[Rfam]
RNA sequence: GUCGGGUCGAGAGAACCUAAUAAAAUACCGAAAGGAAAUAAGUUCCGCCGUCCAGAUACGGUAGUUGAAGCCCGACACCCUACU
Numbered sequence: 001g002u003c004g005g006g007u008c009g010a011g012a013g014a015a016c017c018u019a020a021u022a023a024a025a026u027a028c029c030g031a032a033a034g035g036a037a038a039u040a041a042g043u044u045c046c047g048c049c050g051u052c053c054a055g056a057u058a059c060g061g062u063a064g065u066u067g068a069a070g071c072c073c074g075a076c077a078c079c080c081u082a083c084u
Stems, first nucleotide, its partner, number of pairs: 001076007013045004018040002028035002047062005
Rfam assigns this 84-nucleotide sequence from Nicoletella semolina to the family "sRNA-Xcc1". For this family Rfam cites "HrpG, a key hrp regulatory protein of Xanthomonas campestris pv. vesicatoria is homologous to two-component response regulators" (Wengelnik et al., Mol Plant Microbe Interact, 1996). The family's consensus secondary structure was predicted with RNAalifold. NCBI's taxonomy places the organism under Bacteria, Gammaproteobacteria, Pasteurellales, Pasteurellaceae, Nicoletella.